[Rfam]
This 79-nucleotide RNA from Halpernia frigidisoli belongs to the Rfam family "Flavo-1 RNA". The match comes from Rfam's covariance-model search (71 bits). The family's RNA type in Rfam is small RNA.
RNA sequence: UAAUAGCCCCGAUUGAAAUGAAAAUCCUUUAAAAAAAUGAUUUUUUUUUUAAAGAUUGAAGUGGAAAGCGGGAACUGUU
Numbered sequence: 001u002a003a004u005a006g007c008c009c010c011g012a013u014u015g016a017a018a019u020g021a022a023a024a025u026c027c028u029u030u031a032a033a034a035a036a037a038u039g040a041u042u043u044u045u046u047u048u049u050u051a052a053a054g055a056u057u058g059a060a061g062u063g064g065a066a067a068g069c070g071g072g073a074a075c076u077g078u079u
Base pairs, nucleotide, nucleotide: 009071010070011069013067014066018062019061023057024056025055026054029052030051031050032049033048034047035046036045
Dot-bracket structure: ........(((.((...((...((((..((((((((........)))))))).))))...))...)).)))........